Overview: A member of the RNA family "FMN riboswitch aptamer (RFN element)" from Dietzia sp. ANT_WB102, 195 nucleotides long. Pairs were carried over by alignment from the consensus structure, which is taken from published work.
RNA sequence: ACACGUUCUCAGGGCGGGGUGAAACUCCCCACCGGCGGUGAUGUCAUCGGUCCCAUGACCGGCGACGAGCCCGCGAGCGCCCCGCACGCGCGGUGCGGCCAGACAGUAGAUCCGGCCCCACCAGACGAGUGGGGGUCAGCAGACCCGGUGUGAUCCCGGGGCCGACGGUCAUAGUCCGGAUGGAAGAGAACCUCG
Numbered sequence: 001a002c003a004c005g006u007u008c009u010c011a012g013g014g015c016g017g018g019g020u021g022a023a024a025c026u027c028c029c030c031a032c033c034g035g036c037g038g039u040g041a042u043g044u045c046a047u048c049g050g051u052c053c054c055a056u057g058a059c060c061g062g063c064g065a066c067g068a069g070c071c072c073g074c075g076a077g078c079g080c081c082c083c084g085c086a087c088g089c090g091c092g093g094u095g096c097g098g099c100c101a102g103a104c105a106g107u108a109g110a111u112c113c114g115g116c117c118c119c120a121c122c123a124g125a126c127g128a129g130u131g132g133g134g135g136u137c138a139g140c141a142g143a144c145c146c147g148g149u150g151u152g153a154u155c156c157c158g159g160g161g162c163c164g165a166c167g168g169u170c171a172u173a174g175u176c177c178g179g180a181u182g183g184a185a186g187a188g189a190a191c192c193u194c195g
Stems, first nucleotide, its partner, number of pairs: 003193001005191006017029003031175002033164002035074004069162002077140002144160005166178003

Gene Ontology term of the family: FMN binding.